[Rfam]
RNA sequence: CUAAGGCGCGGGCUUCAACCCGCGUCGUAGCAUAACCAGAACAGCCGCUUACAAAGCGGCGGUUCUUAUUUUGAAGAAAUGAGACAAGCAGGGGCAUCCGGGCUGGUACCCGGACUAUCAGCGUGAUCCUAAGUGGCUUGUUUUAGUCGCUGCACUCGGACUUCUGCAAGUUUGCUCGGUGUUUUCGCCGAUGGUGUUCCCCUAAUCGAGGGUGACCA
Numbered sequence: 001c002u003a004a005g006g007c008g009c010g011g012g013c014u015u016c017a018a019c020c021c022g023c024g025u026c027g028u029a030g031c032a033u034a035a036c037c038a039g040a041a042c043a044g045c046c047g048c049u050u051a052c053a054a055a056g057c058g059g060c061g062g063u064u065c066u067u068a069u070u071u072u073g074a075a076g077a078a079a080u081g082a083g084a085c086a087a088g089c090a091g092g093g094g095c096a097u098c099c100g101g102g103c104u105g106g107u108a109c110c111c112g113g114a115c116u117a118u119c120a121g122c123g124u125g126a127u128c129c130u131a132a133g134u135g136g137c138u139u140g141u142u143u144u145a146g147u148c149g150c151u152g153c154a155c156u157c158g159g160a161c162u163u164c165u166g167c168a169a170g171u172u173u174g175c176u177c178g179g180u181g182u183u184u185u186c187g188c189c190g191a192u193g194g195u196g197u198u199c200c201c202c203u204a205a206u207c208g209a210g211g212g213u214g215a216c217c218a
Base pairs, nucleotide, nucleotide: 001030002029003028005026006025007024008023009022010021011020012019039065040064041063042062044060045059047057048056049055090203091202092201093200094199095196096195097114098113099112100111101110102109115194116193117192118191119190121188122187123186125184126183128179129178132176133175134174135173136172137170138169139168140167141166145162146161147160148159
RNA: sucA-II RNA